[Rfam]
RNA sequence: CCGAGGGCUUCAUCCUCGGCUGUUAUAUUUCGCCCCUUCGGGGCU
Numbered sequence: 001c002c003g004a005g006g007g008c009u010u011c012a013u014c015c016u017c018g019g020c021u022g023u024u025a026u027a028u029u030u031c032g033c034c035c036c037u038u039c040g041g042g043g044c045u
Base pairs, nucleotide, nucleotide: 001019002018003017004016005015006014032044033043034042035041036040
RNA: Acido-Lenti-1 RNA